[Rfam]
RNA: MIR477 microRNA precursor family
RNA sequence: GAAGCUCCCAAUCUCCCUCAGAGGCUUCCAAUAUCUCAGUUUAUAGUAAUUGCUUCAAAUAAUGAGAAUGUUGGAUGCCUUUGGAGGAGAUUGAGAGCUU
Numbered sequence: 001g002a003a004g005c006u007c008c009c010a011a012u013c014u015c016c017c018u019c020a021g022a023g024g025c026u027u028c029c030a031a032u033a034u035c036u037c038a039g040u041u042u043a044u045a046g047u048a049a050u051u052g053c054u055u056c057a058a059a060u061a062a063u064g065a066g067a068a069u070g071u072u073g074g075a076u077g078c079c080u081u082u083g084g085a086g087g088a089g090a091u092u093g094a095g096a097g098c099u100u
Stems, first nucleotide, its partner, number of pairs: 003099004009093008018084002021081005027075007